[Rfam]
RNA sequence: UAAUUUUGCAAGCUGAUAGAAAAUCUAUCUGUACAUAAUAAUCAUUGAACCAAUAUUGGCAUG
Numbered sequence: 001u002a003a004u005u006u007u008g009c010a011a012g013c014u015g016a017u018a019g020a021a022a023a024u025c026u027a028u029c030u031g032u033a034c035a036u037a038a039u040a041a042u043c044a045u046u047g048a049a050c051c052a053a054u055a056u057u058g059g060c061a062u063g
Stems, first nucleotide, its partner, number of pairs: 015029005

This 63-nucleotide RNA sequence belongs to the Rfam family "S15-Flavobacteria ribosomal protein leader". The family is grouped with related families in Rfam's "Ribosomal Protein S15 Leader clan". By type it is a cis-regulatory leader. For this family Rfam cites "Discovery of 20 novel ribosomal leader candidates in bacteria and archaea" (Eckert and Weinberg, BMC Microbiol, 2020). It is one of the family's seed sequences.